[Rfam]
RNA: mir-17 microRNA precursor family
Organism: Oreochromis niloticus
RNA sequence: CUGGUUGUCAAAAGUGCUGUUUGUGCAGGUAGCAGUCAUCCACCUACUGCAAAACCAGCACUUCAGGUUAACAGG
Numbered sequence: 001c002u003g004g005u006u007g008u009c010a011a012a013a014g015u016g017c018u019g020u021u022u023g024u025g026c027a028g029g030u031a032g033c034a035g036u037c038a039u040c041c042a043c044c045u046a047c048u049g050c051a052a053a054a055c056c057a058g059c060a061c062u063u064c065a066g067g068u069u070a071a072c073a074g075g
Stems, first nucleotide, its partner, number of pairs: 004072004009067001012063008021054002024051003028048005